The family of this 142-nucleotide sequence from Aspergillus calidoustus is "A. fumigatus sRNA Afu_254". The family's RNA type in Rfam is small RNA.
RNA sequence: CUCCAAAGCCAACAAACCAAACAACAGCCUCCAAAGUCACCCGACCAACCACCACCAACGUUCAAAAUGUCUCCUUGCUCCUGCAACUGCUGCGCCGGCGACUGCAACUCCUGCUCUUGCGGUGACUGCAGCGUAAGUCAUC
Numbered sequence: 001c002u003c004c005a006a007a008g009c010c011a012a013c014a015a016a017c018c019a020a021a022c023a024a025c026a027g028c029c030u031c032c033a034a035a036g037u038c039a040c041c042c043g044a045c046c047a048a049c050c051a052c053c054a055c056c057a058a059c060g061u062u063c064a065a066a067a068u069g070u071c072u073c074c075u076u077g078c079u080c081c082u083g084c085a086a087c088u089g090c091u092g093c094g095c096c097g098g099c100g101a102c103u104g105c106a107a108c109u110c111c112u113g114c115u116c117u118u119g120c121g122g123u124g125a126c127u128g129c130a131g132c133g134u135a136a137g138u139c140a141u142c
Stems, first nucleotide, its partner, number of pairs: 076100004083093003104129003113120002

NCBI's taxonomy places the organism under Eukaryota, Dikarya, Eurotiomycetes, Eurotiomycetidae, Aspergillus subgen. Nidulantes.